[Rfam]
RNA sequence: UCUGGCGAUGAUGAAACACUUGCCCUCACUGAGAACACUGUUCGCUAAUGAGAACUCUUUAUGUACUCAGAAUUACUGAGCCAGA
Numbered sequence: 001u002c003u004g005g006c007g008a009u010g011a012u013g014a015a016a017c018a019c020u021u022g023c024c025c026u027c028a029c030u031g032a033g034a035a036c037a038c039u040g041u042u043c044g045c046u047a048a049u050g051a052g053a054a055c056u057c058u059u060u061a062u063g064u065a066c067u068c069a070g071a072a073u074u075a076c077u078g079a080g081c082c083a084g085a
Stems, first nucleotide, its partner, number of pairs: 001085006